[Rfam]
RNA: mir-124 microRNA precursor family
Nucleotides: 075
Base pairs, nucleotide, nucleotide: 003073004072006070009067010066011065012064013063014062015061016060018058019057020056025053026052027051028050029049030048032046
Number, partner (000 for none) and nucleotide at each position: 001000u002000u003073c004072g005000c006070u007000u008000u009067g010066u011065g012064u013063u014062c015061a016060c017000u018058g019057c020056g021000u022000g023000a024000g025053c026052c027051u028050u029049g030048u031000u032046g033000c034000u035000u036000u037000a038000u039000u040000a041000a042000c043000g044000a045000a046032c047000c048030a049029u050028a051027a052026g053025g054000c055000a056020c057019g058018c059000g060016g061015u062014g063013a064012a065011u066010g067009c068000c069000a070006a071000a072004c073003g074000a075000u